[Rfam]
RNA: T-box leader
Organism: Paenibacillus sp. FSL H7-0737
RNA sequence: AUACACGCUAAGAACGGGAGUAGUAGGGAAUGACGGUGAACAGAGAGCUGCGGGGUGGUGCGACGCAGUCACCGAAAGUCUUGAAUCUCGCCCGGGAGCGGAGCGGCGGAAAUAAGAGUACGCUGCCUACGGCUGUCCCCGUUAUCGGACCUUUCCAGAUAUCCUGACUCCCUCAGGAUGGACCGGGAAGAAGAGCUGGACGCAGCUUAAUGGCUUGAUUAUAUGAAUAGCCUAUGCGUCAAAAAGAGUGGUACCGCGGAGGGGUAACCCGCCGUCUCUUUA
Numbered sequence: 001a002u003a004c005a006c007g008c009u010a011a012g013a014a015c016g017g018g019a020g021u022a023g024u025a026g027g028g029a030a031u032g033a034c035g036g037u038g039a040a041c042a043g044a045g046a047g048c049u050g051c052g053g054g055g056u057g058g059u060g061c062g063a064c065g066c067a068g069u070c071a072c073c074g075a076a077a078g079u080c081u082u083g084a085a086u087c088u089c090g091c092c093c094g095g096g097a098g099c100g101g102a103g104c105g106g107c108g109g110a111a112a113u114a115a116g117a118g119u120a121c122g123c124u125g126c127c128u129a130c131g132g133c134u135g136u137c138c139c140c141g142u143u144a145u146c147g148g149a150c151c152u153u154u155c156c157a158g159a160u161a162u163c164c165u166g167a168c169u170c171c172c173u174c175a176g177g178a179u180g181g182a183c184c185g186g187g188a189a190g191a192a193g194a195g196c197u198g199g200a201c202g203c204a205g206c207u208u209a210a211u212g213g214c215u216u217g218a219u220u221a222u223a224u225g226a227a228u229a230g231c232c233u234a235u236g237c238g239u240c241a242a243a244a245a246g247a248g249u250g251g252u253a254c255c256g257c258g259g260a261g262g263g264g265u266a267a268c269c270c271g272c273c274g275u276c277u278c279u280u281u282a
Base pairs, nucleotide, nucleotide: 007099008098015094016093017092018091026082027081028080029079031077036072037071038070047069048068049067050066051065052064102128103127104125105124106123107122108121130141131140132139199240200239201238202237203236204235245279246278247277248276256275257274258273259272
Dot-bracket structure: ......((......((((.......((((.(....(((........((((((...........)))))))))....).))))........))))...))..(((((((............))))).)).(((......))).........................................................((((((..............................))))))....((((.......((((............))))))))...